Lysine riboswitch aptamer: a 173-nucleotide RNA from Lachnospiraceae bacterium MD329. The organism belongs to Lachnospiraceae, within Bacteria.
[Rfam]
RNA sequence: UAGCAAGAUAGAGGCGCAUUUUAUAUCAGUACGCGCGCGGAGGUAUGCAGUUACCUUUGAAGUACGCUGAAAGGAUAAAGUGCCGAAGUGACGGUUUGAUUGCACUUUCCGCCGCUGGGCAUAUCGUUAACAAUGAUAUGACUGUCAUCGUAAGGUGGGGAGCUAUCGCUGUU
Dot-bracket structure: ......(((((....(((((((((........(((.((.......................)).))).......)))))))))...((((.(((...(......)...))).))))((.((((((((.....)))))))).)).(((((....)))))....)))))......